The family of this 140-nucleotide RNA from Blautia obeum is "Group II catalytic intron D1-D4-4".
Rfam's curators put it in the seed alignment.
From the family's description: Group II introns are found in rRNA, tRNA and mRNA of organelles in fungi, plants and protists, and also in mRNA in bacteria.
The literature on the family includes a 2001 paper in Trends Genet by Bonen and Vogel, "The ins and outs of group II introns".
[Rfam]
RNA sequence: CAGUCGGUGAAAGUCCGACUAUGGUAAUCACCAGUGAGCCAUAUAGUCAAAUCCGGUGCGUUGUAGUAAUACAGGGUACUAAGCGGAUGGGUAAUGUAGCUUCAUAAGAAGUGCUAACAAUCAUGCAGACCGCAACAUAA
Numbered sequence: 001c002a003g004u005c006g007g008u009g010a011a012a013g014u015c016c017g018a019c020u021a022u023g024g025u026a027a028u029c030a031c032c033a034g035u036g037a038g039c040c041a042u043a044u045a046g047u048c049a050a051a052u053c054c055g056g057u058g059c060g061u062u063g064u065a066g067u068a069a070u071a072c073a074g075g076g077u078a079c080u081a082a083g084c085g086g087a088u089g090g091g092u093a094a095u096g097u098a099g100c101u102u103c104a105u106a107a108g109a110a111g112u113g114c115u116a117a118c119a120a121u122c123a124u125g126c127a128g129a130c131c132g133c134a135a136c137a138u139a140a
Stems, first nucleotide, its partner, number of pairs: 020043005051088004055080005064071002096114001099112005118132001